This 62-nucleotide RNA from Cebus imitator belongs to the Rfam family "mir-320 microRNA precursor family". NCBI's taxonomy places the organism under Eukaryota, Teleostomi, Eutheria, Platyrrhini, Cebus. The base pairs follow the family's consensus structure, which was predicted with RNAalifold. The match comes from Rfam's covariance-model search (56 bits). The family has 38 seed sequences and 659 matches in Rfam 15.1.
[Rfam]
RNA sequence: AGGGAUCUCGGCCUUCUCUUCCCGGUUCUUCCUGGGGUUGGGAAAAGCUGGGUUGAAAGGGU
Numbered sequence: 001a002g003g004g005a006u007c008u009c010g011g012c013c014u015u016c017u018c019u020u021c022c023c024g025g026u027u028c029u030u031c032c033u034g035g036g037g038u039u040g041g042g043a044a045a046a047g048c049u050g051g052g053u054u055g056a057a058a059g060g061g062u
Base pairs, nucleotide, nucleotide: 014059015058017056018055021052022051023050024049025048029044030043031042032041033040034039